[Rfam]
RNA sequence: GGCUUGAAUAUGAGUAGUGGAUGGAACUGAAUAUUUUCGCAUUUCCUUGUGAAAUAGGAUUCAGUUUCCUCCACUAUCUCACUUUCAACCC
Numbered sequence: 001g002g003c004u005u006g007a008a009u010a011u012g013a014g015u016a017g018u019g020g021a022u023g024g025a026a027c028u029g030a031a032u033a034u035u036u037u038c039g040c041a042u043u044u045c046c047u048u049g050u051g052a053a054a055u056a057g058g059a060u061u062c063a064g065u066u067u068c069c070u071c072c073a074c075u076a077u078c079u080c081a082c083u084u085u086c087a088a089c090c091c
Stems, first nucleotide, its partner, number of pairs: 004088005011081004016075006023068008032059001
Background
The record is a 91-nucleotide RNA from Kingdonia uniflora, which matches "MIR2275 microRNA precursor family" in Rfam. The base pairs follow the family's consensus structure, which was predicted with RNAalifold. Rfam links the family to the GO terms miRNA-mediated post-transcriptional gene silencing and RISC complex.